[Rfam]
RNA sequence: GAUCGCGUGGCCUAAUGGAUAAGGCGCUCGCCUCCGGAGCGGGAGAUUGUGGGUUCGAGUCCCAUCGUGAUUG
Number, nucleotide and partner (000 for none) at each position: 001g072002a071003u070004c069005g068006c067007g066008u000009g000010g025011c024012c023013u022014a000015a000016u000017g000018g000019a000020u000021a000022a013023g012024g011025c010026g000027c043028u042029c041030g040031c039032c000033u000034c000035c000036g000037g000038a000039g031040c030041g029042g028043g027044a000045g000046a000047u000048u000049g065050u064051g063052g062053g061054u000055u000056c000057g000058a000059g000060u000061c053062c052063c051064a050065u049066c007067g006068u005069g004070a003071u002072u001073g000
RNA: tRNA
Organism: Citrus x clementina